Rfam assigns this 53-nucleotide sequence from Ixodes scapularis to the family "Guanidine-II riboswitch aptamer (mini-ykkC)". Rfam links the family to the GO term regulation of gene expression. Lineage of the source: Eukaryota > Ecdysozoa > Arachnida > Parasitiformes > Ixodes.
RNA sequence: CCUCGAGGACGACCUCAAGGAUGACUUCCACAAAGACCUCGAGGACGACCUCA
Numbered sequence: 001c002c003u004c005g006a007g008g009a010c011g012a013c014c015u016c017a018a019g020g021a022u023g024a025c026u027u028c029c030a031c032a033a034a035g036a037c038c039u040c041g042a043g044g045a046c047g048a049c050c051u052c053a
Stems, first nucleotide, its partner, number of pairs: 001020003005016004041052004